[Rfam]
RNA sequence: ACGUUUUUUUCAUAGAGAUUUAGAUUUAAGGUUAGAAGAAUUGUGGAAGUCGUGAGACUUCCCUUUUUUUCAUCUUAACGUUUACUAUCCUUCAUUGUUUGAAUGUGCAAGAUAUUUUGUAAAAUAGUACAGGAUGGCUAUGAAGAAUAAGUAAACCUAAAAAGCCUUCUUCGUGAGAAGAGGCUUUUUU
Numbered sequence: 001a002c003g004u005u006u007u008u009u010u011c012a013u014a015g016a017g018a019u020u021u022a023g024a025u026u027u028a029a030g031g032u033u034a035g036a037a038g039a040a041u042u043g044u045g046g047a048a049g050u051c052g053u054g055a056g057a058c059u060u061c062c063c064u065u066u067u068u069u070u071c072a073u074c075u076u077a078a079c080g081u082u083u084a085c086u087a088u089c090c091u092u093c094a095u096u097g098u099u100u101g102a103a104u105g106u107g108c109a110a111g112a113u114a115u116u117u118u119g120u121a122a123a124a125u126a127g128u129a130c131a132g133g134a135u136g137g138c139u140a141u142g143a144a145g146a147a148u149a150a151g152u153a154a155a156c157c158u159a160a161a162a163a164g165c166c167u168u169c170u171u172c173g174u175g176a177g178a179a180g181a182g183g184c185u186u187u188u189u190u
Stems, first nucleotide, its partner, number of pairs: 026078007035071006045062007082155002084152002086149002088146001090145006159189009169180004
RNA: Bacteroides sRNA BTnc231
Organism: Bacteroides thetaiotaomicron